[Rfam]
RNA sequence: CCCUCGUCCGACAAAUCGCUAUUCGAAGCUUCCACACGGAGAGAUUCGCGCCUUUUUGGCGUGUUUUCUUUCAUUUCCAAUCGAGCUUUGGGAGAAAGUCCCCGGACAUUCGUUCACUAUUUGCGAACGGAUUGCGGAAACGCGCCGCCAUAGAAGCACUGCGGCUGAUCUCGGCGUUGCCCAGUUCCUCGUCUGUCUUGCCCAGCCCUGCCCAUCACACCAAAGUCGGUCUCGUCUGCUUCCUCGGGGAGGUCGUCAUUUUUCAAGCUCGGGGACCAACAUGGACGAAGAUAUGAGUCCGCGCCUCGGGUGAGAAGCUUGGUCGCCUGAUCUGGGGGGGCUUGGGGUCGAUGGUGGGUUCAGCCGUUUGGGUGGUCCGGACUUGGGGCGUUUUAACGGCGGCUCGAGAGGUUUCGUCAUGAUACCACAGAUAUGCGAUUGCUCGCUCUUGUGUCUUUUACUAGGGGAGACAUGGGCGAAGUUACUCGACGGGGCUUAUUCUUGGUGCGAGG
Numbered sequence: 001c002c003c004u005c006g007u008c009c010g011a012c013a014a015a016u017c018g019c020u021a022u023u024c025g026a027a028g029c030u031u032c033c034a035c036a037c038g039g040a041g042a043g044a045u046u047c048g049c050g051c052c053u054u055u056u057u058g059g060c061g062u063g064u065u066u067u068c069u070u071u072c073a074u075u076u077c078c079a080a081u082c083g084a085g086c087u088u089u090g091g092g093a094g095a096a097a098g099u100c101c102c103c104g105g106a107c108a109u110u111c112g113u114u115c116a117c118u119a120u121u122u123g124c125g126a127a128c129g130g131a132u133u134g135c136g137g138a139a140a141c142g143c144g145c146c147g148c149c150a151u152a153g154a155a156g157c158a159c160u161g162c163g164g165c166u167g168a169u170c171u172c173g174g175c176g177u178u179g180c181c182c183a184g185u186u187c188c189u190c191g192u193c194u195g196u197c198u199u200g201c202c203c204a205g206c207c208c209u210g211c212c213c214a215u216c217a218c219a220c221c222a223a224a225g226u227c228g229g230u231c232u233c234g235u236c237u238g239c240u241u242c243c244u245c246g247g248g249g250a251g252g253u254c255g256u257c258a259u260u261u262u263u264c265a266a267g268c269u270c271g272g273g274g275a276c277c278a279a280c281a282u283g284g285a286c287g288a289a290g291a292u293a294u295g296a297g298u299c300c301g302c303g304c305c306u307c308g309g310g311u312g313a314g315a316a317g318c319u320u321g322g323u324c325g326c327c328u329g330a331u332c333u334g335g336g337g338g339g340g341c342u343u344g345g346g347g348u349c350g351a352u353g354g355u356g357g358g359u360u361c362a363g364c365c366g367u368u369u370g371g372g373u374g375g376u377c378c379g380g381a382c383u384u385g386g387g388g389c390g391u392u393u394u395a396a397c398g399g400c401g402g403c404u405c406g407a408g409a410g411g412u413u414u415c416g417u418c419a420u421g422a423u424a425c426c427a428c429a430g431a432u433a434u435g436c437g438a439u440u441g442c443u444c445g446c447u448c449u450u451g452u453g454u455c456u457u458u459u460a461c462u463a464g465g466g467g468a469g470a471c472a473u474g475g476g477c478g479a480a481g482u483u484a485c486u487c488g489a490c491g492g493g494g495c496u497u498a499u500u501c502u503u504g505g506u507g508c509g510a511g512g
Base pairs, nucleotide, nucleotide: 002512003511004510005509006508007507008505009504010503011502014440015439016438017437018436019435023092024090025089026088027087028086029085039072040071041070042069043068044067096497097496098495100494101493102492103491133144134143135142136141240251241250242249243248257411259409263407264406266404267403268402270399272397283393284392285391286390442481443480444478445477446476447475448474
RNase MRP: a 512-nucleotide RNA from Sordaria macrospora. From the family's description: RNase MRP is an enzymatically active ribonucleoprotein with two distinct roles in eukaryotes.